[Rfam]
Rfam assigns this 97-nucleotide sequence from Pipistrellus kuhlii to the family "mir-9261 microRNA precursor family". The match comes from Rfam's covariance-model search (89 bits). The source organism's lineage runs through Eukaryota, Sarcopterygii, Mammalia, Boreoeutheria and Pipistrellus.
RNA sequence: AACAAUUUGUCCCGAGUCCCGCGGUGGUUUAAAAAAGUCCCGAUUUUUUAUUCCACCGGAUUUUUAAACCGCCGCGGGACUCGGGACAAAUUGUUAA
Number, nucleotide and partner (000 for none) at each position: 001a095002a094003c093004a092005a091006u090007u089008u088009g087010u086011c085012c084013c083014g082015a081016g080017u079018c078019c077020c076021g075022c074023g073024g072025u071026g070027g069028u068029u067030u066031a065032a064033a063034a062035a061036a000037g000038u000039c000040c000041c000042g000043a000044u000045u000046u000047u000048u000049u000050a000051u000052u000053c000054c000055a000056c000057c000058g000059g000060a000061u035062u034063u033064u032065u031066a030067a029068a028069c027070c026071g025072c024073c023074g022075c021076g020077g019078g018079a017080c016081u015082c014083g013084g012085g011086a010087c009088a008089a007090a006091u005092u004093g003094u002095u001096a000097a000